[Rfam]
RNA sequence: AUUUGCUCCACAUUAGCAGCACGUAAAUAUUGGGUGGUAUGAUAUGGAGCCCCAGUGUUAUUGUGCUGCUUAAGUGUGGCAAAG
Numbered sequence: 001a002u003u004u005g006c007u008c009c010a011c012a013u014u015a016g017c018a019g020c021a022c023g024u025a026a027a028u029a030u031u032g033g034g035u036g037g038u039a040u041g042a043u044a045u046g047g048a049g050c051c052c053c054a055g056u057g058u059u060a061u062u063g064u065g066c067u068g069c070u071u072a073a074g075u076g077u078g079g080c081a082a083a084g
Base pairs, nucleotide, nucleotide: 002083003082004081005080006079013072015070016069017068018067019066020065021064022063023062026059027058028057029056030055031054032053033052034051
RNA: mir-15 microRNA precursor family
Organism: Xenopus laevis